[Rfam]
RNA sequence: AUCGUCUGGCGUUCUCCUCCCAUUGCGCCGGACGAUGUUCCCCUCUGAAGGUUAUGACCUUCAUUUUGGCCGGGCCGCUUUUCGCGCCCGGCCUUU
Numbered sequence: 001a002u003c004g005u006c007u008g009g010c011g012u013u014c015u016c017c018u019c020c021c022a023u024u025g026c027g028c029c030g031g032a033c034g035a036u037g038u039u040c041c042c043c044u045c046u047g048a049a050g051g052u053u054a055u056g057a058c059c060u061u062c063a064u065u066u067u068g069g070c071c072g073g074g075c076c077g078c079u080u081u082u083c084g085c086g087c088c089c090g091g092c093c094u095u096u
Stems, first nucleotide, its partner, number of pairs: 001036005007030005046063007070091006076084002
Shown here is a 96-nucleotide RNA sequence from Mesorhizobium sp. WSM3876, a member of the family "Alphaproteobacterial ar15". Rfam classes the family as a small RNA. It scores 50 bits against the family's covariance model. The pairing is the family consensus, mapped onto this sequence.